RNA sequence: GACCCGCGCGCGCCCGGGUGAGGUGCGCAUUUUCCCUGACAGACUUCGCCCGGACCUUUGCGUCCGGGCUUUUUU
Numbered sequence: 001g002a003c004c005c006g007c008g009c010g011c012g013c014c015c016g017g018g019u020g021a022g023g024u025g026c027g028c029a030u031u032u033u034c035c036c037u038g039a040c041a042g043a044c045u046u047c048g049c050c051c052g053g054a055c056c057u058u059u060g061c062g063u064c065c066g067g068g069c070u071u072u073u074u075u
Stems, first nucleotide, its partner, number of pairs: 008028007048069008
Dot-bracket structure: .......(((((((.......)))))))...................((((((((......))))))))......

Shown here is a 75-nucleotide RNA from Mesobaculum littorinae, a member of the family "Singlet oxygen resistance RNA X".
The family's RNA type in Rfam is small RNA.
The base pairs follow the family's consensus structure.
Its family is annotated with response to photooxidative stress in the Gene Ontology.
For this family Rfam cites "Photooxidative stress-induced and abundant small RNAs in Rhodobacter sphaeroides" (Berghoff et al., Mol Microbiol, 2009).